Record summary: The family of this 84-nucleotide RNA from Pieris brassicae is "mir-275 microRNA precursor family". A reference for the family is Winter et al. (2007), "Anopheles gambiae miRNAs as actors of defence reaction against Plasmodium invasion", Nucleic Acids Res. Taxonomically the source falls in Pieris (Eukaryota, Opisthokonta, Neolepidoptera, Pierini). The match comes from Rfam's covariance-model search (72 bits).

[Rfam]
RNA sequence: GGAGCGUUGACGCCGCGCGCUACUCCGGCGCCGGGGCUGUCUUCACGAGUCAGGUACCUGAAGUAGCGCGCGGCGUCCGCGCUC
Numbered sequence: 001g002g003a004g005c006g007u008u009g010a011c012g013c014c015g016c017g018c019g020c021u022a023c024u025c026c027g028g029c030g031c032c033g034g035g036g037c038u039g040u041c042u043u044c045a046c047g048a049g050u051c052a053g054g055u056a057c058c059u060g061a062a063g064u065a066g067c068g069c070g071c072g073g074c075g076u077c078c079g080c081g082c083u084c
Stems, first nucleotide, its partner, number of pairs: 009077004014072001016070007030055003035051004